[Rfam]
RNA sequence: GGUCACAAGUUUGAGGUUAUAGCAGAAGUGCUUGAGACGCAGCCUUGCCAGAGUCCAGUGAAUCUGUGAAUUUUGCU
Dot-bracket structure: .............[[[[[..((((((((((.......)))]]]]]...((((.((....)).))))....)))))))